[Rfam]
RNA sequence: CAAGACCACAAGGGGGGCCGUUUGGCUGAGAGUGGACAUUUUGUCCUGACCCUUCGAACCUGUAAGUUCAUACUUGCGUAGGGAUGUGGAUGGAAACUGAC
Numbered sequence: 001c002a003a004g005a006c007c008a009c010a011a012g013g014g015g016g017g018c019c020g021u022u023u024g025g026c027u028g029a030g031a032g033u034g035g036a037c038a039u040u041u042u043g044u045c046c047u048g049a050c051c052c053u054u055c056g057a058a059c060c061u062g063u064a065a066g067u068u069c070a071u072a073c074u075u076g077c078g079u080a081g082g083g084a085u086g087u088g089g090a091u092g093g094a095a096a097c098u099g100a101c
Base pairs, nucleotide, nucleotide: 006089007088008087009086010085011053012052013051014050016047017026018025019024034046035045036044037043059082060081061080062079063076064075065074066073
A member of the RNA family "TPP riboswitch aptamer (THI element)" from Sporosarcina sp. Te-1, 101 nucleotides long. The source organism's lineage runs through Bacteria, Bacilli, Caryophanales, Caryophanaceae and Sporosarcina. Rfam describes the family as follows. Vitamin B(1) in its active form thiamin pyrophosphate (TPP) is an essential coenzyme that is synthesised by coupling of pyrimidine and thiazole moieties in bacteria. The previously detected thiamin-regulatory element, thi box was extended, resulting in a new, highly conserved RNA secondary structure, the THI element, which is widely distributed in eubacteria and also occurs in some archaea. Rfam links the family to the GO term thiamine pyrophosphate binding. A search with the family's covariance model found it, with a score of 66 bits.